This 69-nucleotide RNA from Bombyx mori belongs to the Rfam family "mir-2774 microRNA precursor family". Lineage of the source: Eukaryota > Eumetabola > Ditrysia > Obtectomera > Bombyx. The family's consensus secondary structure was predicted with RNAalifold. Its family is annotated with RISC complex and miRNA-mediated post-transcriptional gene silencing in the Gene Ontology.
[Rfam]
RNA sequence: ACAACAUUCGGUUCGUCGGUCUACCGAGUAAUUUCACCCGCCCGGUGGAAGAUUUUCUCCUUUCUUCGU
Numbered sequence: 001a002c003a004a005c006a007u008u009c010g011g012u013u014c015g016u017c018g019g020u021c022u023a024c025c026g027a028g029u030a031a032u033u034u035c036a037c038c039c040g041c042c043c044g045g046u047g048g049a050a051g052a053u054u055u056u057c058u059c060c061u062u063u064c065u066u067c068g069u
Stems, first nucleotide, its partner, number of pairs: 004066001010060002015053003020049007028041002